[Rfam]
RNA: small nucleolar RNA snoR143
RNA sequence: CUUCAACAACAUUGCAGAAAUUAAAGGUUUAAUUUUUUUUAUAUUUCUUUUUUGAAAAGAAAAGAAAGAAGAAAAAUUAAGCAGCGGCCAGACAACCGUAGGGAUGGUAUCCACAGAUGAAGGGUUUUUAAUCCCUUUUUGUCUACUGAUUCCAUCUCACAUUU
Numbered sequence: 001c002u003u004c005a006a007c008a009a010c011a012u013u014g015c016a017g018a019a020a021u022u023a024a025a026g027g028u029u030u031a032a033u034u035u036u037u038u039u040u041a042u043a044u045u046u047c048u049u050u051u052u053u054g055a056a057a058a059g060a061a062a063a064g065a066a067a068g069a070a071g072a073a074a075a076a077u078u079a080a081g082c083a084g085c086g087g088c089c090a091g092a093c094a095a096c097c098g099u100a101g102g103g104a105u106g107g108u109a110u111c112c113a114c115a116g117a118u119g120a121a122g123g124g125u126u127u128u129u130a131a132u133c134c135c136u137u138u139u140u141g142u143c144u145a146c147u148g149a150u151u152c153c154a155u156c157u158c159a160c161a162u163u164u
Stems, first nucleotide, its partner, number of pairs: 002056005009044001011042002014039001016037008101158007109151001120140004124135001